[Rfam]
Rfam assigns this 60-nucleotide RNA sequence from Coffea canephora to the family "Plastid-psbA-4 3UTR RNA". Lineage of the source: Eukaryota > Euphyllophyta > Mesangiospermae > eudicotyledons > Coffea. About the family: Plastid psbA-4 is a non-coding RNA (ncRNA) present in plastids. A reference for the family is Richter et al. (2023), "Retrograde signaling in plants: A critical review focusing on the GUN pathway and beyond", Plant Commun. It scores 57 bits against the family's covariance model.
RNA sequence: AAAAUAAAGAAGUAAUAAUUUCCUUCUUGUUCCAUUAAGAGGGCGUUAUUAUUCUUUUAU
Numbered sequence: 001a002a003a004a005u006a007a008a009g010a011a012g013u014a015a016u017a018a019u020u021u022c023c024u025u026c027u028u029g030u031u032c033c034a035u036u037a038a039g040a041g042g043g044c045g046u047u048a049u050u051a052u053u054c055u056u057u058u059a060u
Base pairs, nucleotide, nucleotide: 006058007057008056009055011053012052013051014050015049016048017047022043024041025040026039027038028037029036